[Rfam]
Annotation:
This 75-nucleotide RNA sequence belongs to the Rfam family "RAGATH-18 RNA". The base pairs follow the family's consensus structure, which is taken from published work. Rfam's curators put it in the seed alignment.
RNA sequence: CCUACGGAGAGUACUAGAACUUGUGAGUAGCAUUUGAAGAAUUUCAUUACGAAAGCAUACUCGAUGAAGUAGGAA
Number, nucleotide and partner (000 for none) at each position: 001c073002c072003u071004a070005c069006g000007g000008a000009g062010a061011g060012u059013a058014c000015u000016a000017g000018a000019a000020c000021u000022u057023g056024u055025g000026a000027g000028u000029a000030g050031c000032a048033u000034u000035u046036g045037a000038a000039g000040a000041a000042u000043u000044u000045c036046a035047u000048u032049a000050c030051g000052a000053a000054a000055g024056c023057a022058u013059a012060c011061u010062c009063g000064a000065u000066g000067a000068a000069g005070u004071a003072g002073g001074a000075a000